Shown here is a 70-nucleotide RNA sequence from Lottia gigantea, a member of the family "mir-8/mir-141/mir-200 microRNA precursor family". The sequence is in the family's curated seed alignment.
RNA sequence: GGUGCCAUCUUACUUUACAGCAUUAGAUUUGUACGAACAUUUUCUAAUACUGUCAGGUAAAGAUGUCCAC
Numbered sequence: 001g002g003u004g005c006c007a008u009c010u011u012a013c014u015u016u017a018c019a020g021c022a023u024u025a026g027a028u029u030u031g032u033a034c035g036a037a038c039a040u041u042u043u044c045u046a047a048u049a050c051u052g053u054c055a056g057g058u059a060a061a062g063a064u065g066u067c068c069a070c
Stems, first nucleotide, its partner, number of pairs: 004067001006065004010060006017053004022048006